[Rfam]
RNA sequence: CAAUUGAGACUGUCGUCGGUCCGCCCCCACCGCGACCGUCUCAGGGAACGGGCUCCGGUCCGUUCCCAUCGAAACCUUCCGCAGGAGAAAGCCCCCCUCCGUCGGAAGGCUGGCGGGCGGCGAGGUGCCCCCAAGCUUCGCCGCCCGUUCCG
Number, nucleotide and partner (000 for none) at each position: 001c000002a000003a000004u000005u000006g000007a000008g000009a039010c038011u000012g036013u035014c034015g033016u000017c032018g031019g030020u029021c000022c000023g000024c000025c000026c000027c000028c000029a020030c019031c018032g017033c015034g014035a013036c012037c000038g010039u009040c000041u000042c000043a000044g067045g066046g065047a064048a063049c062050g061051g060052g059053c000054u058055c000056c000057g000058g054059u052060c051061c050062g049063u048064u047065c046066c045067c044068a000069u113070c000071g000072a000073a111074a000075c109076c108077u000078u000079c105080c104081g103082c000083a000084g100085g099086a098087g097088a000089a000090a000091g000092c000093c000094c000095c000096c000097c087098u086099c085100c084101g000102u000103c081104g080105g079106a000107a000108g076109g075110c000111u073112g000113g069114c000115g146116g145117g144118c143119g142120g141121c140122g139123a138124g137125g136126u135127g000128c000129c000130c000131c000132c000133a000134a000135g126136c125137u124138u123139c122140g121141c120142c119143g118144c117145c116146c115147g000148u000149u000150c000151c000152g000
Notes
A member of the RNA family "Bradyrhizobiaceae sRNA BjrC80" from Rhodopseudomonas faecalis, 152 nucleotides long. The organism belongs to Rhodopseudomonas, within Bacteria. On this family, see Madhugiri et al., RNA Biol 2012: "Small RNAs of the Bradyrhizobium/Rhodopseudomonas lineage and their analysis".